[Rfam]
RNA sequence: GGUUGCAAUUUUGAGGCCACAGCAGAAGUGCUCAUGGUGCAGCCUGUUAGAUUCCAAUGAACCUGCAUAUUCUACU
Numbered sequence: 001g002g003u004u005g006c007a008a009u010u011u012u013g014a015g016g017c018c019a020c021a022g023c024a025g026a027a028g029u030g031c032u033c034a035u036g037g038u039g040c041a042g043c044c045u046g047u048u049a050g051a052u053u054c055c056a057a058u059g060a061a062c063c064u065g066c067a068u069a070u071u072c073u074a075c076u
Stems, first nucleotide, its partner, number of pairs: 015044003021076002024073004028040003048065003052061003
RNA: Mammalian CPEB3 ribozyme